Rfam assigns this 228-nucleotide RNA sequence from Miscanthus lutarioriparius to the family "MIR6217 microRNA precursor family". It scores 181 bits against the family's covariance model.

Nucleotides: 228
Base pairs, nucleotide, nucleotide: 001228002227003226004225005224006223007222008221010219012217013216014215016213017212018211019210020209021208022207023206024205025204026203029200030199031198032197033196037192038191039190040189041188042187043186044185045184046183047182051177052176053175054174055173057171058170059169060168061167062166065165066164069161070160074155079148080147081146082145083144087142088141089140090139091138092137093132094131095130096129097128098127099126100125101124102123107117108116
Number, partner (000 for none) and nucleotide at each position: 001228u002227g003226g004225c005224u006223a007222c008221a009000a010219a011000a012217u013216a014215a015000c016213u017212u018211a019210u020209u021208c022207u023206a024205u025204a026203g027000c028000a029200a030199c031198u032197u033196u034000g035000a036000g037192u038191u039190a040189c041188g042187a043186u044185a045184a046183u047182u048000a049000c050000c051177a052176u053175g054174u055173u056000a057171a058170u059169u060168u061167a062166c063000g064000a065165g066164a067000c068000u069161a070160u071000a072000g073000u074155a075000a076000c077000u078000c079148u080147u081146u082145a083144c084000u085000a086000a087142g088141u089140g090139g091138u092137u093132u094131a095130c096129u097128a098127u099126a100125a101124c102123a103000a104000u105000a106000u107117g108116g109000u110000a111000a112000a113000u114000a115000u116108c117107c118000c119000c120000a121000u122000a123102u124101g125100u126099u127098a128097u129096a130095g131094u132093a133000a134000c135000c136000u137092a138091a139090c140089u141088a142087u143000c144083g145082u146081a147080a148079a149000u150000a151000u152000g153000u154000a155074u156000u157000g158000a159000c160070a161069u162000u163000a164066u165065c166062g167061u168060a169059a170058a171057u172000c173055a174054g175053u176052a177051u178000a179000u180000a181000a182047a183046a184045u185044u186043a187042u188041c189040g190039u191038a192037a193000a194000u195000a196033a197032a198031g199030g200029u201000a202000u203026c204025u205024a206023u207022a208021g209020a210019a211018u212017a213016a214000u215014u216013u217012a218000c219010u220000c221008u222007g223006u224005a225004g226003c227002c228001g